The family of this 109-nucleotide sequence from Punica granatum is "Small nucleolar RNA snoR99".
By type it is an H/ACA-box small nucleolar RNA.
A search with the family's covariance model found it, with a score of 80 bits.
For this family Rfam cites "Experimental RNomics: identification of 140 candidates for small non-messenger RNAs in the plant Arabidopsis thaliana" (Marker et al., Curr Biol, 2002).
[Rfam]
Nucleotides: 109
Base pairs, nucleotide, nucleotide: 042103043102044101045100046099047098059089060088061087062086063085064084065083066082
Number, partner (000 for none) and nucleotide at each position: 001000u002000u003000g004000c005000u006000c007000u008000a009000g010000g011000g012000a013000u014000g015000a016000a017000c018000a019000a020000g021000u022000c023000c024000c025000u026000c027000a028000c029000a030000u031000g032000g033000a034000a035000c036000u037000c038000c039000c040000a041000a042103u043102c044101c045100a046099u047098c048000u049000g050000c051000c052000u053000c054000a055000c056000u057000u058000u059089g060088u061087c062086a063085g064084c065083a066082g067000u068000u069000a070000u071000u072000u073000u074000u075000c076000a077000c078000u079000c080000u081000c082066u083065u084064g085063c086062u087061g088060a089059u090000c091000a092000u093000u094000a095000g096000c097000c098047g099046a100045u101044g102043g103042a104000a105000u106000a107000u108000c109000c